[Rfam]
RNA: RAGATH-18 RNA
RNA sequence: CCCUCGGACUGUUAUAUCAAAUGAGAGUAGCUUAUAAGUUUAUUUAUAGCGAAAUUAGACAGGUUGAACAGGGAA
Numbered sequence: 001c002c003c004u005c006g007g008a009c010u011g012u013u014a015u016a017u018c019a020a021a022u023g024a025g026a027g028u029a030g031c032u033u034a035u036a037a038g039u040u041u042a043u044u045u046a047u048a049g050c051g052a053a054a055u056u057a058g059a060c061a062g063g064u065u066g067a068a069c070a071g072g073g074a075a
Stems, first nucleotide, its partner, number of pairs: 001073004009062005022057003030050003035046002